[Rfam]
The record is an 84-nucleotide RNA sequence from Pleurocapsales cyanobacterium LEGE 06147, which matches "Fluoride riboswitch aptamer (crcB RNA motif)" in Rfam. The organism belongs to Pleurocapsales, within Bacteria.

RNA sequence: AAUAAAUAAGGCGAUGGGGCUCGCCUUAACCGCUAUCUGGGCUUAGGCGAUCGCCACCAGAAGGCUGAUGGCUCCUACUGUUCC
Numbered sequence: 001a002a003u004a005a006a007u008a009a010g011g012c013g014a015u016g017g018g019g020c021u022c023g024c025c026u027u028a029a030c031c032g033c034u035a036u037c038u039g040g041g042c043u044u045a046g047g048c049g050a051u052c053g054c055c056a057c058c059a060g061a062a063g064g065c066u067g068a069u070g071g072c073u074c075c076u077a078c079u080g081u082u083c084c
Base pairs, nucleotide, nucleotide: 010025011024012023013022016075017074018073019072020071021070032065033064034063
The match comes from Rfam's covariance-model search (49 bits). The family's consensus secondary structure is taken from published work.